[Rfam]
RNA sequence: UUCUCCGCGAGGAGGCGUCUGAAGGAAGCUGCAGGCAACAUGCUGGUUCGACGAACAGGAAGCGGAUAGAGGCGGCGUAGCGGGGUGAGACAGCCAUAAAGGCCAAAGCCCAAAACUUGCACGGAACGCUACGACCAGAGGACACCCCGGUCGGGCGCUUCACUAAAGUCUUACAAA
Dot-bracket structure: .(((((....)))))..............((...((....((..((((((...........((((.(.....(..(((((((((((..(.(..........).)...))))...............)))))))......)...).))..))))))).)..)).....))....))..
Numbered sequence: 001u002u003c004u005c006c007g008c009g010a011g012g013a014g015g016c017g018u019c020u021g022a023a024g025g026a027a028g029c030u031g032c033a034g035g036c037a038a039c040a041u042g043c044u045g046g047u048u049c050g051a052c053g054a055a056c057a058g059g060a061a062g063c064g065g066a067u068a069g070a071g072g073c074g075g076c077g078u079a080g081c082g083g084g085g086u087g088a089g090a091c092a093g094c095c096a097u098a099a100a101g102g103c104c105a106a107a108g109c110c111c112a113a114a115a116c117u118u119g120c121a122c123g124g125a126a127c128g129c130u131a132c133g134a135c136c137a138g139a140g141g142a143c144a145c146c147c148c149g150g151u152c153g154g155g156c157g158c159u160u161c162a163c164u165a166a167a168g169u170c171u172u173a174c175a176a177a
Stems, first nucleotide, its partner, number of pairs: 002015005030175002035169002041162002045158001046156005062151002064147002067144001073140001076133007083111004089104001091102001
The family of this 177-nucleotide RNA from Dyella sp. M7H15-1 is "Group II catalytic intron D1-D4-3". It scores 78 bits against the family's covariance model. On this family, see Bonen and Vogel, Trends Genet 2001: "The ins and outs of group II introns".